[Rfam]
RNA sequence: CCGCGUUCGCGUGACUGGCGAAGCAGGCGGGACACCACCGUGGAGCGCGGACCCGGCCGCCGCUCGCCUGGGCACCCUCG
Numbered sequence: 001c002c003g004c005g006u007u008c009g010c011g012u013g014a015c016u017g018g019c020g021a022a023g024c025a026g027g028c029g030g031g032a033c034a035c036c037a038c039c040g041u042g043g044a045g046c047g048c049g050g051a052c053c054c055g056g057c058c059g060c061c062g063c064u065c066g067c068c069u070g071g072g073c074a075c076c077c078u079c080g
Base pairs, nucleotide, nucleotide: 003054005052006051007050008049009048010047011046012045015042017068018067019066020065021064027038029036030035059073060072061071
This 80-nucleotide RNA sequence from Sphingomonas sp. AAP5 belongs to the Rfam family "ZMP/ZTP riboswitch aptamer (pfl RNA motif)".
The organism belongs to Sphingomonas, within Bacteria.
A search with the family's covariance model found it, with a score of 52 bits.